Shown here is an 82-nucleotide RNA sequence from Dichanthelium oligosanthes, a member of the family "MIR2275 microRNA precursor family".
The source organism's lineage runs through Eukaryota, Viridiplantae, Tracheophyta, Euphyllophyta and Dichanthelium.
Rfam links the family to the GO terms miRNA-mediated post-transcriptional gene silencing and RISC complex.
A search with the family's covariance model found it, with a score of 66 bits.

RNA sequence: AAGCUGAAGGCGAGUGUUGGAUGGAACCAAAUCUGCAGCUGUGCACGAGAUUUGGUUUCCUCCAAUGUCUCAUCUUCAACUG
Numbered sequence: 001a002a003g004c005u006g007a008a009g010g011c012g013a014g015u016g017u018u019g020g021a022u023g024g025a026a027c028c029a030a031a032u033c034u035g036c037a038g039c040u041g042u043g044c045a046c047g048a049g050a051u052u053u054g055g056u057u058u059c060c061u062c063c064a065a066u067g068u069c070u071c072a073u074c075u076u077c078a079a080c081u082g
Stems, first nucleotide, its partner, number of pairs: 005078004012071003016066006023059008032050002